[Rfam]
RNA sequence: GUAGAUCCCAAAGGAGUGCAAUCUGAGAACACAGCAGCGAGUGCCAAGACCUGUUUGCCACUGCAUCUGUGUUCUCAGGUCACCCCUUUGGGUCACCU
Numbered sequence: 001g002u003a004g005a006u007c008c009c010a011a012a013g014g015a016g017u018g019c020a021a022u023c024u025g026a027g028a029a030c031a032c033a034g035c036a037g038c039g040a041g042u043g044c045c046a047a048g049a050c051c052u053g054u055u056u057g058c059c060a061c062u063g064c065a066u067c068u069g070u071g072u073u074c075u076c077a078g079g080u081c082a083c084c085c086c087u088u089u090g091g092g093u094c095a096c097c098u
Stems, first nucleotide, its partner, number of pairs: 007092002011088004016083003025076010
The record is a 98-nucleotide sequence from Phoenix dactylifera, which matches "MIR398 microRNA precursor family" in Rfam.
It scores 63 bits against the family's covariance model.
The base pairs follow the family's consensus structure, which was predicted with WAR.